[Rfam]
RNA sequence: GAGGUAACAUUCUAGGACAUGUCCUUGUCGUGCAGACUGACAUCCAACGUUUUGUUGGUUUGUUAGGCUGCCUCUGUACACCUCACCUGGCCAUAGAGUAAUACAGAGGUACAUAGUACCAGUGUAAUGAUGUGACAUCUCAUGUUGCCAAACAUUCACUGGCCUCCAAAUCCUCAGACAUUC
Numbered sequence: 001g002a003g004g005u006a007a008c009a010u011u012c013u014a015g016g017a018c019a020u021g022u023c024c025u026u027g028u029c030g031u032g033c034a035g036a037c038u039g040a041c042a043u044c045c046a047a048c049g050u051u052u053u054g055u056u057g058g059u060u061u062g063u064u065a066g067g068c069u070g071c072c073u074c075u076g077u078a079c080a081c082c083u084c085a086c087c088u089g090g091c092c093a094u095a096g097a098g099u100a101a102u103a104c105a106g107a108g109g110u111a112c113a114u115a116g117u118a119c120c121a122g123u124g125u126a127a128u129g130a131u132g133u134g135a136c137a138u139c140u141c142a143u144g145u146u147g148c149c150a151a152a153c154a155u156u157c158a159c160u161g162g163c164c165u166c167c168a169a170a171u172c173c174u175c176a177g178a179c180a181u182u183c
Stems, first nucleotide, its partner, number of pairs: 002088004026078003030074001032072001033070003037066002040063003046056003106175004119162006126156004131147002135143001